[Rfam]
RNA sequence: AAUCGGCGUACAGUACAGGGGACGUGUCCCCAAUGCGGUGCCGAGGGAGGCAAGCCCCAGCAAAAGCAUCCUGAUGGAUGGAAAGCUGAAAAAUCACGUGUCGGGUGGAGUUUGGUAGGUCAGCAGUGAUUCGAAGAAGUCAGGCCCG
Numbered sequence: 001a002a003u004c005g006g007c008g009u010a011c012a013g014u015a016c017a018g019g020g021g022a023c024g025u026g027u028c029c030c031c032a033a034u035g036c037g038g039u040g041c042c043g044a045g046g047g048a049g050g051c052a053a054g055c056c057c058c059a060g061c062a063a064a065a066g067c068a069u070c071c072u073g074a075u076g077g078a079u080g081g082a083a084a085g086c087u088g089a090a091a092a093a094u095c096a097c098g099u100g101u102c103g104g105g106u107g108g109a110g111u112u113u114g115g116u117a118g119g120u121c122a123g124c125a126g127u128g129a130u131u132c133g134a135a136g137a138a139g140u141c142a143g144g145c146c147c148g
Base pairs, nucleotide, nucleotide: 003044004043005042006041007040008039011038013036014035015034018031019030020029021028022027046056047055058088059087060086061085067080068079069078070077071076102148103147104146105145106144108141109140111138112137113136118131119130120129121128122127